Background
This 66-nucleotide sequence belongs to the Rfam family "mir-338 microRNA precursor family". Rfam's curators put it in the seed alignment. The base pairs follow the family's consensus structure, which was predicted with RNAalifold. A reference for the family is Chen et al. (2005), "The developmental miRNA profiles of zebrafish as determined by small RNA cloning", Genes Dev. Its family is annotated with RISC complex and miRNA-mediated post-transcriptional gene silencing in the Gene Ontology.
RNA sequence: AGCAACACUAUCCUGAUGCUGUCAGAGUAAGUGGUAAAGCUCCAGCAUCAGUGAUUUUGUUGUUAG
Numbered sequence: 001a002g003c004a005a006c007a008c009u010a011u012c013c014u015g016a017u018g019c020u021g022u023c024a025g026a027g028u029a030a031g032u033g034g035u036a037a038a039g040c041u042c043c044a045g046c047a048u049c050a051g052u053g054a055u056u057u058u059g060u061u062g063u064u065a066g
Stems, first nucleotide, its partner, number of pairs: 004061004010055003013051009